[Rfam]
RNA sequence: CCUUUGGAGAACUAUAUAAACAAAAGUAAUAAUUAUACAUUAUGAAAUUGGGUUCGUUGAAUAAGGAA
Number, nucleotide and partner (000 for none) at each position: 001c066002c065003u064004u063005u000006g000007g000008a000009g055010a054011a053012c052013u051014a000015u000016a000017u000018a000019a000020a000021c050022a049023a048024a000025a000026g000027u000028a000029a043030u042031a041032a000033u000034u000035a000036u000037a000038c000039a000040u000041u031042a030043u029044g000045a000046a000047a000048u023049u022050g021051g013052g012053u011054u010055c009056g000057u000058u000059g000060a000061a000062u000063a004064a003065g002066g001067a000068a000